[Rfam]
RNA sequence: GGAUGGUCUGAAGACCUGCUGUCUAGGCCAGUCACGGAGGACGCCGGUUCCUCAGGGGCCCUGGUGCCCGCCUAGGGGAAAGUCCCCGGACCCGCGGGCAGAGAGUGCCGGGCGCUCCGCUGCGCCCCGCCCGUCCCGCCGCUCCCUUUCCUCCGCCAAGAGGCCUCCGGGCUGAGCGGCCGAGCGCGGGCCGGGCUCUCGUCACCCCGCACAGCAACGCAGGUAGUGCGGGAACCGCACCAACACAACGGGGCUCACUCUCAGGACAUC
Number, nucleotide and partner (000 for none) at each position: 001g000002g270003a269004u268005g267006g000007u265008c264009u263010g262011a261012a000013g000014a224015c223016c222017u221018g220019c219020u000021g000022u076023c075024u074025a073026g072027g071028c070029c000030a000031g000032u000033c000034a000035c000036g000037g053038a052039g051040g050041a049042c000043g000044c000045c000046g000047g000048u000049u041050c040051c039052u038053c037054a000055g000056g000057g000058g000059c000060c000061c000062u000063g000064g000065u000066g000067c000068c000069c000070g028071c027072c026073u025074a024075g023076g022077g000078g000079a000080a000081a255082g254083u000084c253085c252086c251087c250088g000089g000090a000091c000092c000093c000094g000095c000096g000097g109098g108099c107100a106101g000102a000103g000104a000105g000106u100107g099108c098109c097110g127111g126112g125113c124114g123115c122116u000117c000118c000119g000120c000121u000122g115123c114124g113125c112126c111127c110128c000129g196130c195131c194132c000133g192134u000135c190136c189137c188138g000139c000140c000141g185142c184143u183144c182145c000146c000147u000148u000149u000150c000151c000152u000153c179154c178155g177156c176157c000158a000159a000160g000161a000162g000163g172164c171165c170166u000167c000168c000169g000170g165171g164172c163173u000174g000175a000176g156177c155178g154179g153180c000181c000182g144183a143184g142185c141186g000187c000188g137189g136190g135191c000192c133193g000194g131195g130196c129197u000198c000199u000200c000201g000202u000203c000204a000205c000206c000207c000208c000209g000210c000211a000212c000213a000214g000215c000216a000217a000218c000219g019220c018221a017222g016223g015224u014225a000226g240227u239228g238229c237230g236231g235232g000233a000234a000235c231236c230237g229238c228239a227240c226241c000242a000243a000244c000245a000246c000247a000248a000249c000250g087251g086252g085253g084254c082255u081256c000257a000258c000259u000260c000261u011262c010263a009264g008265g007266a000267c005268a004269u003270c002
Source information
This 270-nucleotide RNA sequence from Turnix velox belongs to the Rfam family "RNase MRP". It is annotated as a ribozyme. The literature on the family includes a 2006 paper in Nucleic Acids Res by Rosenblad et al., "Inventory and analysis of the protein subunits of the ribonucleases P and MRP provides further evidence of homology between the yeast and human enzymes". Lineage of the source: Eukaryota > Teleostomi > Theropoda > Aves > Turnix. Its family is annotated with ribonuclease MRP complex, ribonuclease MRP activity and rRNA processing in the Gene Ontology.